[Rfam]
RNA: mir-1684 microRNA precursor family
RNA sequence: AACAUCGCUACGAAGCCUCCAUUUCCUCAACUUAAUUUUACUGUUUUAAAGAUUAAGUUGAGGAAAUGGAGGCUUCGUAGCGAUGUU
Numbered sequence: 001a002a003c004a005u006c007g008c009u010a011c012g013a014a015g016c017c018u019c020c021a022u023u024u025c026c027u028c029a030a031c032u033u034a035a036u037u038u039u040a041c042u043g044u045u046u047u048a049a050a051g052a053u054u055a056a057g058u059u060g061a062g063g064a065a066a067u068g069g070a071g072g073c074u075u076c077g078u079a080g081c082g083a084u085g086u087u
Stems, first nucleotide, its partner, number of pairs: 002086002006082002009079013023065010034054002037051003